[Rfam]
RNA sequence: GUGCCCAAUGAUUAUAAAAAGACGCGUUAUUCUGAGGGGGAAACCCCACUGCCAGUUCUCUCUGAAACCUAAUCUUUUUUUUCAUCUCUCUUCUGAAUUCCCCUUCUCUUUCCCCCUCCUUCCCCUUCACCUCUGCACUGGCAAUGGGUCCGCUGAACGUGAUUAUGAGAUAUGAGGGCAC
Numbered sequence: 001g002u003g004c005c006c007a008a009u010g011a012u013u014a015u016a017a018a019a020a021g022a023c024g025c026g027u028u029a030u031u032c033u034g035a036g037g038g039g040g041a042a043a044c045c046c047c048a049c050u051g052c053c054a055g056u057u058c059u060c061u062c063u064g065a066a067a068c069c070u071a072a073u074c075u076u077u078u079u080u081u082u083c084a085u086c087u088c089u090c091u092u093c094u095g096a097a098u099u100c101c102c103c104u105u106c107u108c109u110u111u112c113c114c115c116c117u118c119c120u121u122c123c124c125c126u127u128c129a130c131c132u133c134u135g136c137a138c139u140g141g142c143a144a145u146g147g148g149u150c151c152g153c154u155g156a157a158c159g160u161g162a163u164u165a166u167g168a169g170a171u172a173u174g175a176g177g178g179c180a181c
Base pairs, nucleotide, nucleotide: 001181002180003179004178005177006176035091036090037089038088039087040086041085
Rfam assigns this 181-nucleotide RNA from Synaphobranchus kaupii to the family "Small nucleolar RNA SNORD97". Rfam links the family to the GO terms nucleolus and RNA processing. Rfam 15.1 lists 639 matches to the family in 614 species. The organism belongs to Synaphobranchus, within Eukaryota. By type it is a C/D-box small nucleolar RNA. On this family, see Vitali et al., Nucleic Acids Res 2003: "Identification of 13 novel human modification guide RNAs".